RNA sequence: AGCUGCGUGCUGGGCGCAGAGCGAACUAUUCUUUCGCCUUUUACUAAAGAAUACCGUGUGCCCGCCACUCAAAGCAGCAUACGCCAAUUUUUGGAGGGUCUUUUCCCUAGGGAAAU
Numbered sequence: 001a002g003c004u005g006c007g008u009g010c011u012g013g014g015c016g017c018a019g020a021g022c023g024a025a026c027u028a029u030u031c032u033u034u035c036g037c038c039u040u041u042u043a044c045u046a047a048a049g050a051a052u053a054c055c056g057u058g059u060g061c062c063c064g065c066c067a068c069u070c071a072a073a074g075c076a077g078c079a080u081a082c083g084c085c086a087a088u089u090u091u092u093g094g095a096g097g098g099u100c101u102u103u104u105c106c107c108u109a110g111g112g113a114a115a116u
Stems, first nucleotide, its partner, number of pairs: 003077004008067002011064008027053008095116001099113004

Rfam assigns this 116-nucleotide RNA sequence from Elaeis guineensis to the family "U5 spliceosomal RNA". A search with the family's covariance model found it, with a score of 89 bits. On this family, see Zwieb, Nucleic Acids Res 1997: "The uRNA database". The family's RNA type in Rfam is spliceosomal small nuclear RNA.